[Rfam]
RNA sequence: GGCGAUUCUUGGGUGACGCACCCCGGAAUCGGGCUCCCUCCUCUCUGGUUCCCGGGUGUGUCACCCGAGAACUGCC
Numbered sequence: 001g002g003c004g005a006u007u008c009u010u011g012g013g014u015g016a017c018g019c020a021c022c023c024c025g026g027a028a029u030c031g032g033g034c035u036c037c038c039u040c041c042u043c044u045c046u047g048g049u050u051c052c053c054g055g056g057u058g059u060g061u062c063a064c065c066c067g068a069g070a071a072c073u074g075c076c
Stems, first nucleotide, its partner, number of pairs: 002075002006071012019058005025052009

Description
The record is a 76-nucleotide RNA from Eptesicus fuscus, which matches "mir-9223 microRNA precursor family" in Rfam. The sequence is in the family's curated seed alignment. The family's consensus secondary structure was predicted with RNAalifold.